[Rfam]
RNA sequence: UAGGUCUGGUGAGGAUGAAAAAAGGACAGGUUUCGCUAAAAAAUGGCAGAACGAUUAUAUGUCGAGAUACCUUGGCUGUCUGAGGACC
Numbered sequence: 001u002a003g004g005u006c007u008g009g010u011g012a013g014g015a016u017g018a019a020a021a022a023a024g025g026a027c028a029g030g031u032u033u034c035g036c037u038a039a040a041a042a043a044u045g046g047c048a049g050a051a052c053g054a055u056u057a058u059a060u061g062u063c064g065a066g067a068u069a070c071c072u073u074g075g076c077u078g079u080c081u082g083a084g085g086a087c088c
Stems, first nucleotide, its partner, number of pairs: 003088004